[Rfam]
Record summary:
Shown here is a 112-nucleotide RNA sequence from Mycolicibacterium hassiacum, a member of the family "SAM (S-adenosyl methionine) riboswitch aptamer". Taxonomically the source falls in Mycolicibacterium hassiacum (Bacteria, Actinomycetota, Mycobacteriaceae, Mycobacterium). A search with the family's covariance model found it, with a score of 82 bits. About the family: SAM-IV is a mRNA element that regulates gene expression via direct sensing of S-adenosylmethionine (SAM or AdoMet). Gene Ontology terms of the family: S-adenosylmethionine metabolic process and regulation of gene expression.

RNA sequence: CUUCAUGAGAUGCCGUCGACAAGCUCCGACUGGACGGCACGCCAACCCCACGCUCGUGGGUGGCUCGGAUGACGAAGCGGCCGAGGCCGACCGGUUUCGGCAAGAGCGCCUC
Number, nucleotide and partner (000 for none) at each position: 001c077002u076003u075004c074005a000006u000007g000008a000009g040010a000011u000012g038013c037014c036015g035016u034017c033018g000019a000020c000021a000022a031023g030024c000025u000026c000027c000028g000029a000030c023031u022032g000033g017034a016035c015036g014037g013038c012039a000040c009041g064042c063043c062044a000045a000046c060047c059048c058049c000050a057051c056052g000053c000054u000055c000056g051057u050058g048059g047060g046061u000062g043063g042064c041065u000066c000067g000068g000069a000070u000071g000072a000073c000074g004075a003076a002077g001078c000079g000080g101081c100082c099083g098084a097085g096086g095087c094088c093089g000090a000091c000092c000093g088094g087095u086096u085097u084098c083099g082100g081101c080102a000103a000104g000105a000106g000107c000108g000109c000110c000111u000112c000